[Rfam]
RNA sequence: UAGACAGCCAAUGGAUCUGCUUACAUAAGUGGGUUUAUGAAAAGAUUUCAAUAAAGCUGGUAAUAAUAAUGCCAUGGUACAAGCCUGAAAUCAAAGUCAUUAAGGUCCCUGAGAAUGGCUACAACA
Numbered sequence: 001u002a003g004a005c006a007g008c009c010a011a012u013g014g015a016u017c018u019g020c021u022u023a024c025a026u027a028a029g030u031g032g033g034u035u036u037a038u039g040a041a042a043a044g045a046u047u048u049c050a051a052u053a054a055a056g057c058u059g060g061u062a063a064u065a066a067u068a069a070u071g072c073c074a075u076g077g078u079a080c081a082a083g084c085c086u087g088a089a090a091u092c093a094a095a096g097u098c099a100u101u102a103a104g105g106u107c108c109c110u111g112a113g114a115a116u117g118g119c120u121a122c123a124a125c126a
Base pairs, nucleotide, nucleotide: 003061005059006058007057016043018041020039071119072118073117074116083106084105085104086103087098088097
The record is a 126-nucleotide sequence from Dipodomys ordii, which matches "Small nucleolar RNA SNORA33" in Rfam. The family's RNA type in Rfam is H/ACA-box small nucleolar RNA. Rfam describes the family as follows. ACA33 is a member of the H/ACA class of snoRNA that guide the sites of modification of uridines to pseudouridines. Gene Ontology terms of the family: nucleolus and RNA processing.